[Rfam]
RNA sequence: AUCAGCGGGGAAAGAAGACCCUGUUGAGCUUCACUCUAGUCCGGCUUUGUGAAACGACUUGAGGGGUGUAGGAUAAGUGGGAGCUUCGGCGUCAGUGAAAUACCACUACUCUUGAUGUUGUUUUACUUAUUCCGUAAUAUUAAGACUCUGCUUUUGCAGUGUUUUUGUUUUAAGGUCCUUGACUGAUUAACGCGGAAGACAUAGCCAGGUGGGGAGUUUGGCUGGGGCGGUACAUCUGUUAAAAGAUAACACAGGUGUCCUAAGGCGAACUCAAUGAGGACAGAAAUCUCAUGUAGACCAAAAGGGGAAAAGUUCGCUUGAUUUUGAUUUUCAGUACAAAUACAAACUGUGAAAGCAUGGCCUAUCGAUCCUUUGAGUCUGUAAAAUAUACAGCUAGAGGUGUCAGAAAAGUUACCACAGGGAUAACUGGCUUGUGGCAGCCAAGCGUUCAUAGCGACGUUGCUUUUUGAUCCUUCGAUGUCGGCUCUUCCUAUCAUUGAGAUGCAGAAGUCUCAAAGUGUCGGAUUGUUCACCCGCUAAUAGGGAACGUGAGCUGGGUUUAGACCGUCGUGAGACAGGUUAGUUUUACCCUACUGAUGA
Numbered sequence: 001a002u003c004a005g006c007g008g009g010g011a012a013a014g015a016a017g018a019c020c021c022u023g024u025u026g027a028g029c030u031u032c033a034c035u036c037u038a039g040u041c042c043g044g045c046u047u048u049g050u051g052a053a054a055c056g057a058c059u060u061g062a063g064g065g066g067u068g069u070a071g072g073a074u075a076a077g078u079g080g081g082a083g084c085u086u087c088g089g090c091g092u093c094a095g096u097g098a099a100a101u102a103c104c105a106c107u108a109c110u111c112u113u114g115a116u117g118u119u120g121u122u123u124u125a126c127u128u129a130u131u132c133c134g135u136a137a138u139a140u141u142a143a144g145a146c147u148c149u150g151c152u153u154u155u156g157c158a159g160u161g162u163u164u165u166u167g168u169u170u171u172a173a174g175g176u177c178c179u180u181g182a183c184u185g186a187u188u189a190a191c192g193c194g195g196a197a198g199a200c201a202u203a204g205c206c207a208g209g210u211g212g213g214g215a216g217u218u219u220g221g222c223u224g225g226g227g228c229g230g231u232a233c234a235u236c237u238g239u240u241a242a243a244a245g246a247u248a249a250c251a252c253a254g255g256u257g258u259c260c261u262a263a264g265g266c267g268a269a270c271u272c273a274a275u276g277a278g279g280a281c282a283g284a285a286a287u288c289u290c291a292u293g294u295a296g297a298c299c300a301a302a303a304g305g306g307g308a309a310a311a312g313u314u315c316g317c318u319u320g321a322u323u324u325u326g327a328u329u330u331u332c333a334g335u336a337c338a339a340a341u342a343c344a345a346a347c348u349g350u351g352a353a354a355g356c357a358u359g360g361c362c363u364a365u366c367g368a369u370c371c372u373u374u375g376a377g378u379c380u381g382u383a384a385a386a387u388a389u390a391c392a393g394c395u396a397g398a399g400g401u402g403u404c405a406g407a408a409a410a411g412u413u414a415c416c417a418c419a420g421g422g423a424u425a426a427c428u429g430g431c432u433u434g435u436g437g438c439a440g441c442c443a444a445g446c447g448u449u450c451a452u453a454g455c456g457a458c459g460u461u462g463c464u465u466u467u468u469g470a471u472c473c474u475u476c477g478a479u480g481u482c483g484g485c486u487c488u489u490c491c492u493a494u495c496a497u498u499g500a501g502a503u504g505c506a507g508a509a510g511u512c513u514c515a516a517a518g519u520g521u522c523g524g525a526u527u528g529u530u531c532a533c534c535c536g537c538u539a540a541u542a543g544g545g546a547a548c549g550u551g552a553g554c555u556g557g558g559u560u561u562a563g564a565c566c567g568u569c570g571u572g573a574g575a576c577a578g579g580u581u582a583g584u585u586u587u588a589c590c591c592u593a594c595u596g597a598u599g600a
Base pairs, nucleotide, nucleotide: 001598002597003596004595005594008592009591010590012587013586020421021420022419023418025417026416027413028412029411030410031409033217034216035215036214040209041208043206044205045204046203049126050125051124052123053122054121055120056119057118058117059115060114061113062112063111064110065109076107077106078105079104080103083090084089130197131196132195133194134193140190141189142188143187148159149158150157151156174184175183176182177181220233221231222230223229234256235255236254237253238252239251259360260359265317266316267315268314269313270312271297272296274292275291276290277289278288279287298307299306322346323345324344327341328340329339330338348357349356350355371399372398373397374396375395379393380392381391382390430471432469434468436464437463438462439461440460441459445455446454482557483555484554485553486552487549488546489545490544491543492542495520496519498515499514500513501512502511503510522536523535524534526532563581564580565579566578567576568575569574
This 600-nucleotide part of an RNA from Theileria orientalis belongs to the Rfam family "Eukaryotic large subunit ribosomal RNA". Taxonomically the source falls in Theileria orientalis (Eukaryota, Sar, Alveolata, Theileriidae). The family's consensus secondary structure is taken from published work.